[Rfam]
RNA sequence: CCCUUGGGGAGUAGCCGCCACGCAUGUCGUGGGGAUGCGUCAACAGGCUUAGGAGGUUGCUCCUAUGGCGCAUCCGGUCCGGGUUCGGAUUGGCGAGACCAAGCGCGUGCCCCCGCCGGAGCAAUAAGCCGGGCGGCCGGGAGGCAUAGCGCUUGUGUGCUCGUCUCACUCGGAU
Numbered sequence: 001c002c003c004u005u006g007g008g009g010a011g012u013a014g015c016c017g018c019c020a021c022g023c024a025u026g027u028c029g030u031g032g033g034g035a036u037g038c039g040u041c042a043a044c045a046g047g048c049u050u051a052g053g054a055g056g057u058u059g060c061u062c063c064u065a066u067g068g069c070g071c072a073u074c075c076g077g078u079c080c081g082g083g084u085u086c087g088g089a090u091u092g093g094c095g096a097g098a099c100c101a102a103g104c105g106c107g108u109g110c111c112c113c114c115g116c117c118g119g120a121g122c123a124a125u126a127a128g129c130c131g132g133g134c135g136g137c138c139g140g141g142a143g144g145c146a147u148a149g150c151g152c153u154u155g156u157g158u159g160c161u162c163g164u165c166u167c168a169c170u171c172g173g174a175u
Base pairs, nucleotide, nucleotide: 019031020030021029033075034074035073036072037071038070039069040068041067042066050065051064052063053062054061077175078174079173080172081171082170083169084168
Manganese Mn2+ riboswitch aptamer (yybP-ykoY): a 175-nucleotide RNA sequence from Elstera cyanobacteriorum. Lineage of the source: Bacteria > Pseudomonadati > Pseudomonadota > Alphaproteobacteria > Elstera. The literature on the family includes a 2001 paper in Curr Biol by Argaman et al., "Novel small RNA-encoding genes in the intergenic regions of Escherichia coli".